[Rfam]
RNA sequence: CCUAGCACUGGUGUACUAGGCUGAGUUAUGCCGUACCUUCGGCACU
Numbered sequence: 001c002c003u004a005g006c007a008c009u010g011g012u013g014u015a016c017u018a019g020g021c022u023g024a025g026u027u028a029u030g031c032c033g034u035a036c037c038u039u040c041g042g043c044a045c046u
Stems, first nucleotide, its partner, number of pairs: 001020005007014002033045002036042002
Dot-bracket structure: (((((.((....)).)))))............((.((...)).)).
This 46-nucleotide sequence from Lentisphaera araneosa belongs to the Rfam family "Acido-Lenti-1 RNA". The organism belongs to Lentisphaera araneosa, within Bacteria. It scores 43 bits against the family's covariance model. The family's consensus secondary structure is taken from published work.